[Rfam]
RNA sequence: CUACUCCCUCUGUCCCAUAAUAUAAGAGUGUUUUUUACACUAGUGUAGUGUCCAAAAGGCUCUUAUAUUAUGGGACGGAGGGAGUAC
Number, nucleotide and partner (000 for none) at each position: 001c000002u000003a085004c084005u083006c000007c081008c080009u079010c078011u077012g000013u075014c074015c073016c072017a071018u000019a069020a068021u067022a066023u065024a064025a063026g062027a061028g060029u059030g000031u057032u056033u055034u054035u000036u000037a051038c050039a049040c048041u047042a000043g000044u000045g000046u000047a041048g040049u039050g038051u037052c000053c000054a034055a033056a032057a031058g000059g029060c028061u027062c026063u025064u024065a023066u022067a021068u020069u019070a000071u017072g016073g015074g014075a013076c000077g011078g010079a009080g008081g007082g000083a005084g004085u003086a000087c000
The record is an 87-nucleotide RNA from Aegilops tauschii, which matches "MIR1120/MIR1122 microRNA precursor family" in Rfam. A reference for the family is Yao et al. (2007), "Cloning and characterization of microRNAs from wheat (Triticum aestivum L.)", Genome Biol. Taxonomically the source falls in Aegilops tauschii (Eukaryota, Viridiplantae, Spermatophyta, Mesangiospermae). The family's consensus secondary structure was predicted with RNAalifold.